[Rfam]
RNA sequence: CCUCAGGGGAGUAGUCGCCUCGGCCUCGCGGGCCGGGGGCGCACGUCAACAGACUUGGCCGCCUGGCCGUGGCGUGUGCAGCCGUUUGAAGGCGCCUGAGCGCGUCUUCGCCGAACGGCCU
Numbered sequence: 001c002c003u004c005a006g007g008g009g010a011g012u013a014g015u016c017g018c019c020u021c022g023g024c025c026u027c028g029c030g031g032g033c034c035g036g037g038g039g040c041g042c043a044c045g046u047c048a049a050c051a052g053a054c055u056u057g058g059c060c061g062c063c064u065g066g067c068c069g070u071g072g073c074g075u076g077u078g079c080a081g082c083c084g085u086u087u088g089a090a091g092g093c094g095c096c097u098g099a100g101c102g103c104g105u106c107u108u109c110g111c112c113g114a115a116c117g118g119c120c121u
Stems, first nucleotide, its partner, number of pairs: 019037008039079010056069005

The record is a 121-nucleotide RNA sequence from Thioalkalivibrio paradoxus, which matches "Manganese Mn2+ riboswitch aptamer (yybP-ykoY)" in Rfam. NCBI's taxonomy places the organism under Bacteria, Gammaproteobacteria, Ectothiorhodospiraceae, Thioalkalivibrio, Thioalkalivibrio paradoxus. Rfam links the family to the GO term manganese ion binding. Rfam's curators write: This RNA was originally discovered in E. coli during a large scale screen and was named SraF. The family was later found to exist upstream of related families of protein genes in many bacteria, including the the yybP and ykoK genes in B. subtilis.